LOOT RNA: a 118-nucleotide sequence. It is annotated as a small RNA.

RNA sequence: AACCUAACCUGAGUAGCUACGGCAAAAGGCAUGGUUGAAAAUCCAGCGAAGAAUAUCGAUCCCGUCGGUAGGUUAUCUUCGUUGGUCAUGGUUGGAAACUUCCAUGGGACUUCGGUCC
Numbered sequence: 001a002a003c004c005u006a007a008c009c010u011g012a013g014u015a016g017c018u019a020c021g022g023c024a025a026a027a028g029g030c031a032u033g034g035u036u037g038a039a040a041a042u043c044c045a046g047c048g049a050a051g052a053a054u055a056u057c058g059a060u061c062c063c064g065u066c067g068g069u070a071g072g073u074u075a076u077c078u079u080c081g082u083u084g085g086u087c088a089u090g091g092u093u094g095g096a097a098a099c100u101u102c103c104a105u106g107g108g109a110c111u112u113c114g115g116u117c118c
Stems, first nucleotide, its partner, number of pairs: 001036004009029002014024001043085010054070006087106005094099001107118004
Dot-bracket structure: ((((....((...(.........)...))...))))......((((((((((.((((((.....)))))).....)))))))))).(((((..(....)..)))))((((....))))